[Rfam]
RNA: c-di-AMP riboswitch aptamer (ydaO/yuaA leader)
Organism: Streptomyces inhibens
RNA sequence: GACGCGCAAGCGCCGAAGGCAGGAGCGGGGGAACCAAGGUAAGUGCCGGCCCCGCCCGCGAAAGCGGGUCAGCCGGCUUGGGGUGAAGCCGGGUGCGCCAUGUGCACCCGGCCGGGCACUCACAGCCCGAACCCGACAGCUCACCUCGUAGGCGUCGGUGAGGAAACGA
Numbered sequence: 001g002a003c004g005c006g007c008a009a010g011c012g013c014c015g016a017a018g019g020c021a022g023g024a025g026c027g028g029g030g031g032a033a034c035c036a037a038g039g040u041a042a043g044u045g046c047c048g049g050c051c052c053c054g055c056c057c058g059c060g061a062a063a064g065c066g067g068g069u070c071a072g073c074c075g076g077c078u079u080g081g082g083g084u085g086a087a088g089c090c091g092g093g094u095g096c097g098c099c100a101u102g103u104g105c106a107c108c109c110g111g112c113c114g115g116g117c118a119c120u121c122a123c124a125g126c127c128c129g130a131a132c133c134c135g136a137c138a139g140c141u142c143a144c145c146u147c148g149u150a151g152g153c154g155u156c157g158g159u160g161a162g163g164a165a166a167c168g169a
Stems, first nucleotide, its partner, number of pairs: 011154004025149006035080004081134003089111010114128004